[Rfam]
RNA sequence: GCGAUGAGCUGAUUGUGUAAGUCGAAGGACGUUUUACGUUGAAUGUGGUCAACGGUCUCUUCGCCACAAUGUCGAAGACACUUGAUUAUUCAAGUGUC
Numbered sequence: 001g002c003g004a005u006g007a008g009c010u011g012a013u014u015g016u017g018u019a020a021g022u023c024g025a026a027g028g029a030c031g032u033u034u035u036a037c038g039u040u041g042a043a044u045g046u047g048g049u050c051a052a053c054g055g056u057c058u059c060u061u062c063g064c065c066a067c068a069a070u071g072u073c074g075a076a077g078a079c080a081c082u083u084g085a086u087u088a089u090u091c092a093a094g095u096g097u098c
Base pairs, nucleotide, nucleotide: 013069014068015067016066017065023063024062025061026060027059028057029056030055037054038053040051041050042049077098078097079096080095081094082093083092084091085090
The record is a 98-nucleotide RNA from Aquibacillus koreensis, which matches "BsrF" in Rfam. Pairs were carried over by alignment from the consensus structure, which was predicted with WAR. The source organism's lineage runs through Bacteria, Bacillati, Caryophanales, Bacillaceae and Aquibacillus.